Shown here is a 107-nucleotide sequence from Nomascus leucogenys, a member of the family "Y RNA". A reference for the family is Dhahbi et al. (2013), "5'-YRNA fragments derived by processing of transcripts from specific YRNA genes and pseudogenes are abundant in human serum and plasma", Physiol Genomics. It scores 47 bits against the family's covariance model. Lineage of the source: Eukaryota > Opisthokonta > Euteleostomi > Primates > Nomascus.
[Rfam]
RNA sequence: GGCUUGUCUGAAAGUAGUUAUCUCAAUUGAUUGUUCAGUCAGUUACAGAUGGAACUCCUUGUUCUACUCUUUCCCGCCUUCUCACUACUGCACUUGACUACUCUAAA
Dot-bracket structure: ((.(.(((.((..(((((.(.................(..((.....................))..).............).)))...))..))))).).))....
Numbered sequence: 001g002g003c004u005u006g007u008c009u010g011a012a013a014g015u016a017g018u019u020a021u022c023u024c025a026a027u028u029g030a031u032u033g034u035u036c037a038g039u040c041a042g043u044u045a046c047a048g049a050u051g052g053a054a055c056u057c058c059u060u061g062u063u064c065u066a067c068u069c070u071u072u073c074c075c076g077c078c079u080u081c082u083c084a085c086u087a088c089u090g091c092a093c094u095u096g097a098c099u100a101c102u103c104u105a106a107a
Stems, first nucleotide, its partner, number of pairs: 001103002004100001006098003010095002014091002016086003020082001038068001041065002